[Rfam]
RNA sequence: AAGGUGGGACGAUCUGCCGCGCUGCGGGGCUUCGGCUCCGGGUGAGGAAAGUCCGGACAGGACAGGGCACCCUACUGAGGAAAGCUCAGAUGGGAGUAAUCUUAUGACAGACGUAACAGAAAACAACCGCCUGGAGACAGGUAAGGGUGAAAACGUGAGGUAAGGGCUCACGAUGGAUGCCGGCGACGUCAUCCAGGUACGAUGUCAGGGCCUGCAAGACCAAAUAUACUGGCAGACGAGGGCUGCCCGCCCGAUGCCAGGGGGUAGGUUGCGUAGAUAAAUGGCAGAUUCAAAAACAGAAACCGGCUUACGGUCCCGCCUUUUUU
Dot-bracket structure: ((((((((((((((((((.((((.(((((......)))))))))....[[[.[[[[.((((...[[[[.((((.(((((.....)))))(.((((....)))).)((.....(((...........(((((((....)))))..)).......((((((.......))))))..(((((.((....)).)))))...)))....))))))))))...((((.......(((((......((((.]]]]))))...)))))......))))............))))))).............]]]]]]].).))))))))))....

Description
Rfam assigns this 326-nucleotide RNA from Alistipes sp. CAG:514 to the family "Bacterial RNase P class A". About the family: Ribonuclease P (RNase P) is a ubiquitous endoribonuclease, found in archaea, bacteria and eukarya as well as chloroplasts and mitochondria. Lineage of the source: Bacteria > Bacteroidota > Bacteroidia > Bacteroidales > Alistipes. Rfam links the family to the GO terms dimeric ribonuclease P complex, tRNA processing and ribonuclease P activity.